The record is a 508-nucleotide RNA from Amycolatopsis sp. YIM 10, which matches "Saccharopolyspora sRNA 350" in Rfam. The match comes from Rfam's covariance-model search (239 bits).

RNA sequence: UUGACCGUGUACUCCCAUUCGCCCGCCUCCCCGGCGAGCACCUGGUCGCCGAGGUACUCACCGUCGGCGAGCACGCCGAGCACGGUCUGGUCGCCGUAGCGGCCCCGGCCGAUCUGGUUCACCUUGCCGUGCGCGAUCAGCAGCACCCUGUCGAUCGGGGUGCCCGCUUCGGCGAUCACAUCGCCGGGCUCGAACUCCUGCUGGGUGAACCGGCCGGCCAGCGCGGCGAGCAGCUCGUCGUCCUCGAAUCCGCGCAGGGUGGGCAGUUCGCGCAGUUCCUGCGGGAUCACCCGGACCUCGGAGCCGACGUUGGUGAAGCUGACCCGGCCGUCGCCGAGGGUGUAGCUCAGCCGCCGGUUCACCCGGUAGGCCCCGCCCUGCGCCUGCACCCAGGGCAGCACCCGCAGCAGCCAACGCGAGGAAAUGCCCUGCAUCUGCGGCACGGACUUGGUGGUGGUGGCCAGAUUUCGGGCGGCCGCGGUACCCAGGCUCGACGGGGGCCGUUCCU
Numbered sequence: 001u002u003g004a005c006c007g008u009g010u011a012c013u014c015c016c017a018u019u020c021g022c023c024c025g026c027c028u029c030c031c032c033g034g035c036g037a038g039c040a041c042c043u044g045g046u047c048g049c050c051g052a053g054g055u056a057c058u059c060a061c062c063g064u065c066g067g068c069g070a071g072c073a074c075g076c077c078g079a080g081c082a083c084g085g086u087c088u089g090g091u092c093g094c095c096g097u098a099g100c101g102g103c104c105c106c107g108g109c110c111g112a113u114c115u116g117g118u119u120c121a122c123c124u125u126g127c128c129g130u131g132c133g134c135g136a137u138c139a140g141c142a143g144c145a146c147c148c149u150g151u152c153g154a155u156c157g158g159g160g161u162g163c164c165c166g167c168u169u170c171g172g173c174g175a176u177c178a179c180a181u182c183g184c185c186g187g188g189c190u191c192g193a194a195c196u197c198c199u200g201c202u203g204g205g206u207g208a209a210c211c212g213g214c215c216g217g218c219c220a221g222c223g224c225g226g227c228g229a230g231c232a233g234c235u236c237g238u239c240g241u242c243c244u245c246g247a248a249u250c251c252g253c254g255c256a257g258g259g260u261g262g263g264c265a266g267u268u269c270g271c272g273c274a275g276u277u278c279c280u281g282c283g284g285g286a287u288c289a290c291c292c293g294g295a296c297c298u299c300g301g302a303g304c305c306g307a308c309g310u311u312g313g314u315g316a317a318g319c320u321g322a323c324c325c326g327g328c329c330g331u332c333g334c335c336g337a338g339g340g341u342g343u344a345g346c347u348c349a350g351c352c353g354c355c356g357g358u359u360c361a362c363c364c365g366g367u368a369g370g371c372c373c374c375g376c377c378c379u380g381c382g383c384c385u386g387c388a389c390c391c392a393g394g395g396c397a398g399c400a401c402c403c404g405c406a407g408c409a410g411c412c413a414a415c416g417c418g419a420g421g422a423a424a425u426g427c428c429c430u431g432c433a434u435c436u437g438c439g440g441c442a443c444g445g446a447c448u449u450g451g452u453g454g455u456g457g458u459g460g461c462c463a464g465a466u467u468u469c470g471g472g473c474g475g476c477c478g479c480g481g482u483a484c485c486c487a488g489g490c491u492c493g494a495c496g497g498g499g500g501c502c503g504u505u506c507c508u
Stems, first nucleotide, its partner, number of pairs: 007389005014382001016380001019327001021325001024321002027318001028316002035313001037311003042306001045305001047303001049301004055232001057230003061226004065111004075103001077102001082097005117222003122217002127212001129210002131206002134203002140197001143196001149192002155188002158185002161178002165174003235295002240290002244286002249283001251281002254278001256277002262269001329342004353377001355375003362370002391431007401421001403418003407415001437476002440473001443470004448464005478506001480502003484499003488495001
For this family Rfam cites "Prediction and characterization of small non-coding RNAs related to secondary metabolites in Saccharopolyspora erythraea" (Liu et al., PLoS One, 2013). The organism belongs to Amycolatopsis, within Bacteria.